Rfam assigns this 76-nucleotide RNA sequence from Tardiphaga sp. vice352 to the family "Makes More Granules Regulator RNA (mmgR)".
It scores 45 bits against the family's covariance model.
The organism belongs to Tardiphaga, within Bacteria.
By type it is a small RNA.
RNA sequence: AACUAAAGCCCAUAUGGGCGUUUCCUCCCAGACUUUGCCGCGUCAUCCUCGGGGUGGCGCGGCUUUUUUCGUUUUG
Numbered sequence: 001a002a003c004u005a006a007a008g009c010c011c012a013u014a015u016g017g018g019c020g021u022u023u024c025c026u027c028c029c030a031g032a033c034u035u036u037g038c039c040g041c042g043u044c045a046u047c048c049u050c051g052g053g054g055u056g057g058c059g060c061g062g063c064u065u066u067u068u069u070c071g072u073u074u075u076g
Base pairs, nucleotide, nucleotide: 008019009018010017011016038062039061040060041059042058043057044056045055046054047053